[Rfam]
RNA sequence: AACAUCAUAAUAAUAUCGCGAAUGUACCACUAACAUAUGCAGCUUUUUCUUAAAGUUGUAGGGAAUGGCUAAAUAUUCUAUGCUUUUCCCAUUUUUAGUAGUGCUCAAGCGUAGAUAAAUUGAACGUUGCUGGGCGCCUGAUGUUGAUCGUUUCGAAAUGAAAUAUUGGGAAUCAGCUGUAUCUACAUUU
Dot-bracket structure: ................(((....((((.((((.....((((...(((....)))..))))(((((.(((............))).))))).....)))).))))....)))..........(((((..........((..(((((..(((((....))))))))))..)).......))).)).......
RNA: Small nucleolar RNA snR32
Organism: Saccharomyces uvarum